Shown here is a 265-nucleotide part of an RNA from Acidihalobacter ferrooxydans, a member of the family "Bacterial large subunit ribosomal RNA". The base pairs follow the family's consensus structure, which is taken from published work.

RNA sequence: UGAGACUUGAGGGGAGCUGCUCCUAGUACGAGAGGACCGGAGUGGACGUACCUCUGGUGUUCCGGUUGUCACGCCAGUGGCAUUGCCGGGUAGCUAUGUACGGAAGGGAUAACCGCUGAAAGCAUCUAAGCGGGAAGCCUACCCCAAGAUUAGGUCUCACUGGAUCCUUGAGAUCCCUAAAGGGCCCUUGUAGACUACGAGGUUGAUAGGCUGAGUGUGGAAGCGCAGUAAUGUGUGAAGCUAAUCAGUACUAAUUGCCCGUGAG
Numbered sequence: 001u002g003a004g005a006c007u008u009g010a011g012g013g014g015a016g017c018u019g020c021u022c023c024u025a026g027u028a029c030g031a032g033a034g035g036a037c038c039g040g041a042g043u044g045g046a047c048g049u050a051c052c053u054c055u056g057g058u059g060u061u062c063c064g065g066u067u068g069u070c071a072c073g074c075c076a077g078u079g080g081c082a083u084u085g086c087c088g089g090g091u092a093g094c095u096a097u098g099u100a101c102g103g104a105a106g107g108g109a110u111a112a113c114c115g116c117u118g119a120a121a122g123c124a125u126c127u128a129a130g131c132g133g134g135a136a137g138c139c140u141a142c143c144c145c146a147a148g149a150u151u152a153g154g155u156c157u158c159a160c161u162g163g164a165u166c167c168u169u170g171a172g173a174u175c176c177c178u179a180a181a182g183g184g185c186c187c188u189u190g191u192a193g194a195c196u197a198c199g200a201g202g203u204u205g206a207u208a209g210g211c212u213g214a215g216u217g218u219g220g221a222a223g224c225g226c227a228g229u230a231a232u233g234u235g236u237g238a239a240g241c242u243a244a245u246c247a248g249u250a251c252u253a254a255u256u257g258c259c260c261g262u263g264a265g
Stems, first nucleotide, its partner, number of pairs: 001159008011145004017045007047102005055096003062089005067082006106140003113133005162177002179262001182260004186202005207253003210249005217241001223236005

It scores 2924 bits against the family's covariance model.